RNA sequence: GGUACCUUGAAAAGCAGUCCUGCGAGACUGACAAGGUAGACGACAUUUAGUGGGCAAUAGCAUCAUAUUUUAUUCUGUUGCCAGUUGGUCUACAGGCUUCUUGUCAGUUUAUCUGAUAAGAAGUCUUUUUU
Numbered sequence: 001g002g003u004a005c006c007u008u009g010a011a012a013a014g015c016a017g018u019c020c021u022g023c024g025a026g027a028c029u030g031a032c033a034a035g036g037u038a039g040a041c042g043a044c045a046u047u048u049a050g051u052g053g054g055c056a057a058u059a060g061c062a063u064c065a066u067a068u069u070u071u072a073u074u075c076u077g078u079u080g081c082c083a084g085u086u087g088g089u090c091u092a093c094a095g096g097c098u099u100c101u102u103g104u105c106a107g108u109u110u111a112u113c114u115g116a117u118a119a120g121a122a123g124u125c126u127u128u129u130u131u
Stems, first nucleotide, its partner, number of pairs: 003038007015030005053082008062073002065070001094126014